[Rfam]
RNA sequence: UUGGGAAGGUGACUGAGCGGGUGAUUACAUAUCCUCCGUUAGGAAAGUCCAUGCUAGCACAGACCCACUCGUUGGGUUUGUAGUGUUUGUGCCAAGGGAAACAAUAACCUUGGGUAUACAGUAAUGUAUAACGGCGAUUUUAAUGAGCUAAGGCUUGCUAUGCUCAAAAUCGUAACGUGCCACAGAAACGUGUCAGUUUAGAAAUGAACUGAAUGAAACGCGGUAAACCCCUCAAGCUAGAAACCCAAAAUAUGGUAGGGGCACGAGAUUCAUAGUAAUAUAGAAUCUUGCGAGUUUAUACUCGAGAUAAAUAGUCACAAGAAGGAAACUUCUACAGAACAUGGCUUAUACAC
Number, nucleotide and partner (000 for none) at each position: 001u000002u000003g000004g353005g000006a000007a349008g000009g318010u317011g316012a315013c314014u313015g000016a040017g039018c038019g037020g036021g035022u000023g000024a000025u000026u000027a000028c000029a000030u000031a000032u000033c000034c000035u021036c020037c019038g018039u017040u016041a000042g000043g000044a000045a347046a346047g345048u000049c344050c343051a342052u341053g340054c240055u239056a238057g237058c236059a081060c080061a079062g078063a077064c076065c075066c074067a073068c000069u000070c000071g000072u000073u067074g066075g065076g064077u063078u062079u061080g060081u059082a000083g000084u000085g000086u000087u235088u234089g233090u000091g231092c113093c112094a111095a110096g109097g108098g000099a000100a000101a000102c000103a000104a000105u000106a000107a000108c097109c096110u095111u094112g093113g092114g132115u130116a129117u128118a127119c126120a125121g000122u000123a000124a000125u120126g119127u118128a117129u116130a115131a000132c114133g230134g229135c000136g171137a170138u169139u168140u000141u000142a000143a000144u000145g165146a164147g163148c162149u000150a000151a000152g159153g158154c000155u000156u000157g000158c153159u152160a000161u000162g148163c147164u146165c145166a000167a000168a139169a138170u137171c136172g000173u000174a000175a000176c000177g228178u227179g224180c223181c222182a000183c000184a000185g000186a000187a000188a000189c000190g000191u000192g000193u212194c211195a210196g209197u208198u207199u206200a205201g000202a000203a000204a000205u200206g199207a198208a197209c196210u195211g194212a193213a000214u000215g000216a000217a000218a000219c000220g000221c000222g181223g180224u179225a000226a000227a178228c177229c134230c133231c091232u000233c089234a088235a087236g058237c057238u056239a055240g054241a000242a000243a000244c260245c259246c258247a000248a000249a000250a000251u000252a000253u000254g000255g000256u000257a000258g246259g245260g244261g000262c000263a000264c290265g289266a288267g287268a286269u285270u284271c000272a000273u000274a000275g000276u000277a000278a000279u000280a000281u000282a000283g000284a270285a269286u268287c267288u266289u265290g264291c304292g303293a302294g301295u300296u000297u000298a000299u000300a295301c294302u293303c292304g291305a000306g000307a000308u000309a000310a000311a000312u000313a014314g013315u012316c011317a010318c009319a000320a000321g332322a331323a330324g329325g000326a000327a000328a000329c324330u323331u322332c321333u000334a000335c000336a000337g000338a000339a000340c053341a052342u051343g050344g049345c047346u046347u045348a000349u007350a000351c000352a000353c004
The family of this 353-nucleotide RNA from Acholeplasma oculi is "Bacterial RNase P class B".
By type it is a ribozyme.
A search with the family's covariance model found it, with a score of 256 bits.